[Rfam]
RNA sequence: AGAAAAUUGAGAGGACAUGACCUUAGUACGAGAGGACCGGGUCGUACGUACCGCUGGUGUAUCGGUUGUGCCGCCAGGUGCAAUGCCGAGUAGCUAUGUACGGAAAGGAUAAACGCUGAAAGCAUCUAAGCGUGAAACCUACCUUAAGAUGAGUUUUCUUUUAAGGGUCGUCAGAGACUAUGACGUUGAUAGGCUACAGGUGUAAAGUUGGUAACAGCAAAGCCGAGUAGUACUAAUUGCCCGUAA
Number, nucleotide and partner (000 for none) at each position: 001a159002g158003a157004a156005a155006a154007u153008u152009g000010a000011g145012a144013g143014g142015a000016c000017a045018u044019g043020a042021c041022c040023u039024u000025a000026g000027u000028a000029c000030g000031a000032g000033a000034g000035g000036a000037c000038c000039g023040g022041g021042u020043c019044g018045u017046a000047c102048g101049u100050a099051c098052c000053g000054c000055u096056g095057g094058u000059g000060u000061a000062u089063c088064g087065g086066u085067u082068g081069u080070g079071c078072c077073g000074c000075c000076a000077g072078g071079u070080g069081c068082a067083a000084u000085g066086c065087c064088g063089a062090g000091u000092a000093g000094c057095u056096a055097u000098g051099u050100a049101c048102g047103g000104a000105a000106a140107g139108g138109a000110u000111a000112a000113a133114c132115g131116c130117u129118g000119a000120a000121a000122g000123c000124a000125u000126c000127u000128a000129a117130g116131c115132g114133u113134g000135a000136a000137a000138c108139c107140u106141a000142c014143c013144u012145u011146a000147a000148g000149a000150u000151g000152a008153g007154u006155u005156u004157u003158c002159u001160u000161u000162u000163a000164a000165g242166g241167g240168u239169c185170g184171u183172c182173a181174g000175a000176g000177a000178c000179u000180a000181u173182g172183a171184c170185g169186u000187u000188g000189a000190u235191a234192g233193g231194c230195u229196a228197c227198a000199g224200g223201u000202g000203u219204a000205a000206a000207g218208u217209u216210g215211g000212u000213a000214a000215c210216a209217g208218c207219a203220a000221a000222g000223c200224c199225g000226a000227g197228u196229a195230g194231u193232a000233c192234u191235a190236a000237u000238u000239g168240c167241c166242c165243g000244u000245a000246a000
The record is a 246-nucleotide part of an RNA from Flavihumibacter petaseus, which matches "Bacterial large subunit ribosomal RNA" in Rfam.
Lineage of the source: Bacteria > Chitinophagales > Chitinophagaceae > Flavihumibacter > Flavihumibacter petaseus.
Rfam links the family to the GO terms structural constituent of ribosome and ribosome.
A search with the family's covariance model found it, with a score of 2748 bits.